A member of the RNA family "DUF3800-X RNA" from a Nitrosopumilaceae archaeon, 90 nucleotides long. Pairs were carried over by alignment from the consensus structure, which is taken from published work. It scores 42 bits against the family's covariance model.
[Rfam]
RNA sequence: CGGCAAGUAAGGCCCGCGGGGCACCGUGGCAUCCGGUUGAAAGGAUGACAGCCGUGUCGACGGCGAGGGACGAGUAGGUCGGGGUCGCCG
Numbered sequence: 001c002g003g004c005a006a007g008u009a010a011g012g013c014c015c016g017c018g019g020g021g022c023a024c025c026g027u028g029g030c031a032u033c034c035g036g037u038u039g040a041a042a043g044g045a046u047g048a049c050a051g052c053c054g055u056g057u058c059g060a061c062g063g064c065g066a067g068g069g070a071c072g073a074g075u076a077g078g079u080c081g082g083g084g085u086c087g088c089c090g
Stems, first nucleotide, its partner, number of pairs: 001090004006085001032083007051064005
The family's RNA type in Rfam is small RNA.